A member of the RNA family "Fusobacteriales-1 RNA" from Olea europaea, 117 nucleotides long. Rfam 15.1 lists 28 matches to the family in 24 species. By type it is a cis-regulatory element.

[Rfam]
RNA sequence: UAUCACCUUUCGCAACGUUUUUAAAACGUUGCGAAAAUAUCACAUUUCGCAACGUUUUUAAAAAACGUUGCGAAACUUUGCGAAAUAUCACCUUUCGCAACGUUUUUAAAACGUUGC
Number, nucleotide and partner (000 for none) at each position: 001u000002a000003u000004c000005a000006c000007c000008u000009u000010u000011c000012g032013c031014a030015a029016c028017g027018u026019u000020u000021u000022u000023a000024a000025a000026a018027c017028g016029u015030u014031g013032c012033g000034a000035a000036a000037a000038u000039a000040u000041c000042a000043c000044a057045u000046u000047u000048c000049g071050c070051a069052a068053c067054g066055u065056u000057u044058u000059u000060a000061a000062a000063a000064a000065a055066c054067g053068u052069u051070g050071c049072g000073a000074a000075a000076c000077u000078u000079u000080g000081c000082g000083a000084a000085a000086u000087a000088u000089c000090a000091c000092c000093u000094u000095u000096c000097g117098c116099a115100a114101c113102g112103u111104u000105u000106u000107u000108a000109a000110a000111a103112c102113g101114u100115u099116g098117c097
The base pairs follow the family's consensus structure, which is taken from published work. The match comes from Rfam's covariance-model search (54 bits).